[Rfam]
RNA sequence: GGUCAUGAGUGACAGCGCGACAAGCCCCAGCUUGCUGUCCGGCAACCCUCCGUCCGUGGCGGGGUGCCCUGGGUGAAGACCAGGCCAGACGGCGACAGGUCCGUGUGGCAAGCGCGGACC
Numbered sequence: 001g002g003u004c005a006u007g008a009g010u011g012a013c014a015g016c017g018c019g020a021c022a023a024g025c026c027c028c029a030g031c032u033u034g035c036u037g038u039c040c041g042g043c044a045a046c047c048c049u050c051c052g053u054c055c056g057u058g059g060c061g062g063g064g065u066g067c068c069c070u071g072g073g074u075g076a077a078g079a080c081c082a083g084g085c086c087a088g089a090c091g092g093c094g095a096c097a098g099g100u101c102c103g104u105g106u107g108g109c110a111a112g113c114g115c116g117g118a119c120c
Stems, first nucleotide, its partner, number of pairs: 001081004009040001011039006023032002041068003046064003050059002084109004089104004